[Rfam]
The family of this 135-nucleotide RNA sequence from Larimichthys crocea is "Small nucleolar RNA SNORA75". A search with the family's covariance model found it, with a score of 80 bits. About the family: U23 belongs to the H/ACA class of snoRNAs. snoRNAs bind a number of proteins (including dyskerin, Gar1p and Nop10p in the case of the H/ACA class) to form snoRNP complexes. The family's RNA type in Rfam is H/ACA-box small nucleolar RNA. Lineage of the source: Eukaryota > Vertebrata > Actinopteri > Percomorphaceae > Larimichthys.
RNA sequence: ACCUUCUCAUGAGCUCCUCUUAAUCUUACCCAUGAUUCUGCAUGGAUUCGCACGAGAAGCAGAGCCCCGUGCACAGUUAGAACAGGCUUACCCUACACUCAUAUGGGUGUUGCCUAUGUCUGCUGUGCAACAGUA
Numbered sequence: 001a002c003c004u005u006c007u008c009a010u011g012a013g014c015u016c017c018u019c020u021u022a023a024u025c026u027u028a029c030c031c032a033u034g035a036u037u038c039u040g041c042a043u044g045g046a047u048u049c050g051c052a053c054g055a056g057a058a059g060c061a062g063a064g065c066c067c068c069g070u071g072c073a074c075a076g077u078u079a080g081a082a083c084a085g086g087c088u089u090a091c092c093c094u095a096c097a098c099u100c101a102u103a104u105g106g107g108u109g110u111u112g113c114c115u116a117u118g119u120c121u122g123c124u125g126u127g128c129a130a131c132a133g134u135a
Stems, first nucleotide, its partner, number of pairs: 003059006013051002015046003022037004071128006091109001093107002096105002